[Rfam]
RNA sequence: AGUGCAUUUGUGUGAACAUUGGGCACUUAUAUGGUGCAAUUGACCUUUAAUAACCCUUUUAACGCUCCGUGAAAGCGAUCACAAAGAAUCUCUGCAAUACUUGUUUGC
Numbered sequence: 001a002g003u004g005c006a007u008u009u010g011u012g013u014g015a016a017c018a019u020u021g022g023g024c025a026c027u028u029a030u031a032u033g034g035u036g037c038a039a040u041u042g043a044c045c046u047u048u049a050a051u052a053a054c055c056c057u058u059u060u061a062a063c064g065c066u067c068c069g070u071g072a073a074a075g076c077g078a079u080c081a082c083a084a085a086g087a088a089u090c091u092c093u094g095c096a097a098u099a100c101u102u103g104u105u106u107g108c
Stems, first nucleotide, its partner, number of pairs: 002026004007021001010019003027103001035096004042090001045086004050079002057075004062070003
Dot-bracket structure: .((((.(..(((....))).).))))(.......((((...(..((((.((.....((((.(((...))).))))..))...))))...)..))))......).....
RNA: ES222 sRNA
Organism: Klebsiella michiganensis